[Rfam]
RNA: TPP riboswitch aptamer (THI element)
RNA sequence: CGAAGCACUCGCGGGAGCCCGACGCAGCGGGCUGAGAGGGAGGCUGAAGCGGCCUCCGACCGUACGAACCUGAUCCGGGUCAUGCCGGCGAAGGGAGGGGCGUUACGCCCAUGC
Number, nucleotide and partner (000 for none) at each position: 001c000002g000003a000004a000005g000006c102007a000008c100009u099010c098011g063012c062013g061014g060015g000016a000017g032018c031019c030020c029021g028022a000023c000024g000025c000026a000027g000028c021029g020030g019031g018032c017033u000034g000035a000036g000037a000038g000039g057040g056041a055042g054043g053044c052045u051046g050047a000048a000049g000050c046051g045052g044053c043054c042055u041056c040057c039058g000059a000060c014061c013062g012063u011064a000065c000066g000067a000068a000069c094070c093071u092072g000073a000074u000075c088076c087077g086078g085079g000080u000081c000082a000083u000084g000085c078086c077087g076088g075089c000090g000091a000092a071093g070094g069095g000096a000097g000098g010099g009100g008101c000102g006103u000104u000105a000106c000107g000108c000109c000110c000111a000112u000113g000114c000